[Rfam]
RNA sequence: AGCCUUCUGAAUCUGUGCGUAGAUUCCAUCAGACACCAGACCACCAGAACUUAUGAGACUCCUGAGAUAAAUGAAGAG
Numbered sequence: 001a002g003c004c005u006u007c008u009g010a011a012u013c014u015g016u017g018c019g020u021a022g023a024u025u026c027c028a029u030c031a032g033a034c035a036c037c038a039g040a041c042c043a044c045c046a047g048a049a050c051u052u053a054u055g056a057g058a059c060u061c062c063u064g065a066g067a068u069a070a071a072u073g074a075a076g077a078g
Base pairs, nucleotide, nucleotide: 003076005074006073008071011068012067013066016064017063019062021060022059024058025057027055028054029053